[Rfam]
RNA sequence: GGUUUCCAUUGAUGUAAAUCCAAUCACCUGAAUUUUAAGAUGAUAAGAAAUUUGCCAUUGGUAACAACUGGUUAUCCACUAAGCGGAGUAAAUCUUAU
Number, nucleotide and partner (000 for none) at each position: 001g000002g000003u000004u000005u000006c000007c000008a000009u023010u022011g021012a000013u000014g000015u000016a000017a000018a000019u000020c000021c011022a010023a009024u000025c000026a000027c000028c000029u000030g000031a000032a000033u000034u000035u000036u000037a000038a000039g000040a000041u000042g000043a000044u000045a000046a000047g000048a000049a000050a000051u000052u000053u088054g000055c086056c085057a000058u078059u000060g076061g075062u074063a073064a072065c071066a000067a000068c000069u000070g000071g065072u064073u063074a062075u061076c060077c000078a058079c000080u000081a000082a000083g000084c000085g056086g055087a000088g053089u000090a000091a000092a000093u000094c000095u000096u000097a000098u000
A member of the RNA family "Plastid-rps12 3UTR RNA" from Anisodus acutangulus, 98 nucleotides long. The family's RNA type in Rfam is cis-regulatory element. The match comes from Rfam's covariance-model search (94 bits). Pairs were carried over by alignment from the consensus structure, which was predicted with LocARNA. From the family's description: Plastid rpl20 is a non-coding RNA (ncRNA) recognised in plastids. It was found in the three prime untranslated region (3UTR) of rps12 gene, its 3UTR location sugest a role in transcript maduration.